The family of this 104-nucleotide RNA sequence from Robertmurraya siralis is "SAM riboswitch aptamer (S box leader)". Taxonomically the source falls in Robertmurraya (Bacteria, Bacillati, Caryophanales, Bacillaceae). On this family, see Grundy and Henkin, Mol Microbiol 1998: "The S box regulon: a new global transcription termination control system for methionine and cysteine biosynthesis genes in gram-positive bacteria".
[Rfam]
RNA sequence: CUCUUAUCAAGAGAGGUGGAGGGAUGUGCCCGAUGAAGCCCGGCAACCGUCAAGUGAUUGAAAUGGUGCCAAUUCACACAAAGCAUUGCUUUGAUAGAUGAGAG
Numbered sequence: 001c002u003c004u005u006a007u008c009a010a011g012a013g014a015g016g017u018g019g020a021g022g023g024a025u026g027u028g029c030c031c032g033a034u035g036a037a038g039c040c041c042g043g044c045a046a047c048c049g050u051c052a053a054g055u056g057a058u059u060g061a062a063a064u065g066g067u068g069c070c071a072a073u074u075c076a077c078a079c080a081a082a083g084c085a086u087u088g089c090u091u092u093g094a095u096a097g098a099u100g101a102g103a104g
Stems, first nucleotide, its partner, number of pairs: 001104008013041001015040003021031003025078004042070004047066002050061003074096001079093006